[Rfam]
RNA sequence: UUGUGAAAAGAGCAAACCAUCCUGAAAAGGUGGGACGCAAAGCACGGGUCUUAACUCAAAAGUAUGACAGCCGGGCUACCGCA
Numbered sequence: 001u002u003g004u005g006a007a008a009a010g011a012g013c014a015a016a017c018c019a020u021c022c023u024g025a026a027a028a029g030g031u032g033g034g035a036c037g038c039a040a041a042g043c044a045c046g047g048g049u050c051u052u053a054a055c056u057c058a059a060a061a062g063u064a065u066g067a068c069a070g071c072c073g074g075g076c077u078a079c080c081g082c083a
Stems, first nucleotide, its partner, number of pairs: 012038002017033004022029002041077003045073003048068003055062002
Rfam assigns this 83-nucleotide RNA sequence from Aquibacillus halophilus to the family "c-di-GMP-I riboswitch aptamer". Gene Ontology term of the family: cyclic-di-GMP binding. Rfam's curators write: GEMM was predicted in a large-scale screen for bacterial structured RNA regulatory elements.